[Rfam]
RNA sequence: ACCCCAUCCCCGGGGAGCGAGCUUUCGCUGAGAGGGGCGGGAUAAGCACCGCCUGACCCGUUGAACCUGAACCGACUAACAUCGGCGGAGGGAGUGGUCCGGCACAUCGC
Numbered sequence: 001a002c003c004c005c006a007u008c009c010c011c012g013g014g015g016a017g018c019g020a021g022c023u024u025u026c027g028c029u030g031a032g033a034g035g036g037g038c039g040g041g042a043u044a045a046g047c048a049c050c051g052c053c054u055g056a057c058c059c060g061u062u063g064a065a066c067c068u069g070a071a072c073c074g075a076c077u078a079a080c081a082u083c084g085g086c087g088g089a090g091g092g093a094g095u096g097g098u099c100c101g102g103c104a105c106a107u108c109g110c
Base pairs, nucleotide, nucleotide: 006098007097008096010094011060012059013058014057016054017028018027019026020025035053036052039049066091067090068089072085073084074083075082